[Rfam]
Nucleotides: 600
Base pairs, nucleotide, nucleotide: 002517003516004515005514009509010476016474017473018472020471021470022469025072026071030070031069032068037064038063039062040061079429080428081427090352091351094348095347098346099345103340104339105338119154120153121152122151128144130142132140133139164206165205166204167203170200171199172198173197174196175195176194212297213296215294216293226285227284229282267276268275269274309334310333312331315329316328317327355401356400357399362392363391364390367389368388369387370386371385372384373383374382404426405425406424407423408419409418410417411416431452432451434449435448436447454465456463457462482507484506485505486504490502491501492500493499573593577589578588579587
Number, partner (000 for none) and nucleotide at each position: 001000u002517g003516u004515c005514u006000c007000a008000a009509a010476g011000c012000c013000u014000a015000a016474g017473c018472c019000a020471u021470g022469c023000a024000a025072a026071u027000g028000u029000a030070a031069g032068a033000u034000c035000a036000g037064u038063c039062a040061u041000a042000u043000g044000u045000g046000g047000u048000u049000c050000a051000c052000g053000c054000c055000a056000c057000u058000a059000u060000a061040a062039u063038g064037a065000c066000a067000g068032u069031c070030u071026g072025u073000g074000g075000a076000a077000g078000g079429c080428u081427c082000a083000u084000u085000a086000u087000a088000a089000c090352a091351g092000u093000u094348a095347u096000a097000c098346a099345c100000c101000u102000a103340g104339c105338c106000a107000c108000u109000g110000g111000a112000a113000a114000g115000u116000u117000u118000a119154c120153a121152a122151g123000g124000a125000u126000a127000c128144c129000a130142c131000c132140g133139u134000u135000a136000a137000c138000u139133g140132c141000a142130g143000c144128g145000a146000u147000a148000a149000u150000a151122c152121u153120u154119g155000u156000u157000c158000c159000c160000u161000u162000c163000g164206g165205g166204g167203u168000g169000g170200u171199a172198a173197u174196a175195g176194u177000a178000u179000u180000u181000g182000u183000g184000c185000u186000g187000a188000a189000a190000c191000c192000u193000a194176g195175c196174u197173a198172u199171u200170g201000u202000a203167a204166c205165u206164c207000a208000g209000u210000u211000u212297c213296u214000c215294u216293g217000g218000g219000u220000a221000u222000a223000g224000c225000a226285a227284u228000a229282u230000a231000c232000u233000c234000a235000g236000g237000g238000g239000g240000a241000u242000u243000g244000g245000g246000c247000a248000u249000c250000g251000a252000c253000c254000g255000c256000u257000a258000g259000c260000a261000g262000g263000u264000g265000c266000u267276c268275g269274c270000a271000a272000g273000g274269g275268c276267g277000c278000g279000g280000g281000a282229a283000a284227g285226u286000g287000a288000g289000c290000u291000a292000a293216c294215a295000a296213g297212g298000u299000u300000u301000u302000c303000a304000u305000a306000a307000g308000g309334c310333c311000u312331u313000u314000c315329a316328g317327g318000u319000u320000u321000g322000c323000u324000u325000u326000u327317u328316c329315u330000a331312g332000u333310g334309g335000c336000c337000a338105g339104g340103c341000a342000g343000a344000g345099g346098u347095g348094u349000u350000u351091c352090u353000u354000a355401c356400c357399u358000a359000u360000c361000a362392g363391c364390u365000c366000g367389u368388u369387g370386u371385u372384u373383g374382u375000u376000u377000a378000a379000a380000g381000g382374a383373c384372a385371a386370a387369c388368a389367a390364g391363g392362c393000u394000u395000u396000g397000a398000c399357g400356g401355g402000u403000a404426c405425g406424g407423g408419g409418a410417a411416u412000c413000a414000g415000u416411g417410u418409u419408c420000g421000a422000u423407u424406c425405c426404g427081g428080a429079g430000a431452g432451g433000g434449a435448g436447c437000c438000u439000g440000a441000g442000a443000g444000a445000u446000c447436g448435c449434u450000a451432c452431c453000a454465c455000a456463u457462c458000u459000a460000a461000g462457g463456a464000c465454g466000g467000c468000a469022g470021c471020a472018g473017g474016c475000g476010c477000g478000c479000a480000a481000a482507u483000u484506a485505c486504c487000c488000a489000a490502u491501c492500c493499c494000a495000a496000c497000a498000c499493g500492g501491g502490g503000a504486g505485g506484u507482a508000g509009u510000g511000a512000c513000a514005a515004g516003a517002u518000a519000u520000a521000g522000u523000g524000u525000c526000u527000c528000a529000u530000c531000a532000c533000c534000u535000u536000c537000g538000g539000u540000g541000g542000u543000g544000a545000g546000g547000u548000a549000u550000u551000a552000u553000c554000a555000u556000u557000u558000g559000a560000u561000a562000a563000u564000u565000u566000u567000c568000c569000a570000u571000g572000a573593u574000u575000u576000g577589g578588g579587u580000g581000u582000a583000g584000a585000u586000a587579a588578c589577c590000c591000u592000u593573a594000g595000a596000g597000c598000a599000g600000c
The family of this 600-nucleotide part of an RNA from Naegleria lovaniensis is "Eukaryotic small subunit ribosomal RNA". Rfam 15.1 lists 75,755 matches to the family in 2,556 species. A reference for the family is Cannone et al. (2002), "The comparative RNA web (CRW) site: an online database of comparative sequence and structure information for ribosomal, intron, and other RNAs", BMC Bioinformatics.